[Rfam]
RNA sequence: AGUGGGGGUGAGAAACUGGCUUGGCUCUAUAUCUCAAAACAGUCAGUCUUUUUCUCUCUCCUAUC
Numbered sequence: 001a002g003u004g005g006g007g008g009u010g011a012g013a014a015a016c017u018g019g020c021u022u023g024g025c026u027c028u029a030u031a032u033c034u035c036a037a038a039a040c041a042g043u044c045a046g047u048c049u050u051u052u053u054c055u056c057u058c059u060c061c062u063a064u065c
Base pairs, nucleotide, nucleotide: 002064003063004062005061006060007059008058010056011055012054013053015051018048019047020046021045024043025042026041028039
The record is a 65-nucleotide RNA, which matches "mir-14 microRNA precursor family" in Rfam.
Gene Ontology terms of the family: miRNA-mediated post-transcriptional gene silencing and RISC complex.